[Rfam]
RNA sequence: GCAUGAAUCGGUGACUGGCGAUACACAAACGUGGGCAACCACGGGGGAGCCGAUUUGCGCAGAUGCCGCUCGCCUGGGCAAAGGGC
Numbered sequence: 001g002c003a004u005g006a007a008u009c010g011g012u013g014a015c016u017g018g019c020g021a022u023a024c025a026c027a028a029a030c031g032u033g034g035g036c037a038a039c040c041a042c043g044g045g046g047g048a049g050c051c052g053a054u055u056u057g058c059g060c061a062g063a064u065g066c067c068g069c070u071c072g073c074c075u076g077g078g079c080a081a082a083g084g085g086c
Base pairs, nucleotide, nucleotide: 004057005056006055007054008053009052010051011050012049015046016045017074018073019072020071021070031042032041033040034039064080065079066078067077